[Rfam]
RNA sequence: CGGCCGGGACGACCCGGUCGCGAUGACAUCGGGCGGGGACGGCCCCG
Numbered sequence: 001c002g003g004c005c006g007g008g009a010c011g012a013c014c015c016g017g018u019c020g021c022g023a024u025g026a027c028a029u030c031g032g033g034c035g036g037g038g039a040c041g042g043c044c045c046c047g
Stems, first nucleotide, its partner, number of pairs: 001020008034047005
Dot-bracket structure: ((((((((....)))))))).............(((((....)))))